[Rfam]
This 50-nucleotide sequence from Tritonibacter horizontis belongs to the Rfam family "SAM/SAH riboswitch aptamer".
The source organism's lineage runs through Bacteria, Pseudomonadati, Alphaproteobacteria, Rhodobacterales and Tritonibacter.
The family's consensus secondary structure is taken from published work.
A reference for the family is Weickhmann et al. (2019), "The structure of the SAM/SAH-binding riboswitch", Nucleic Acids Res.

RNA sequence: UUGCUGCCACAACGGCUUCCUGGCGUGGCGGUUUUUCAUUGAAUGGAGCA
Numbered sequence: 001u002u003g004c005u006g007c008c009a010c011a012a013c014g015g016c017u018u019c020c021u022g023g024c025g026u027g028g029c030g031g032u033u034u035u036u037c038a039u040u041g042a043a044u045g046g047a048g049c050a
Stems, first nucleotide, its partner, number of pairs: 004031007013022002015049003019046002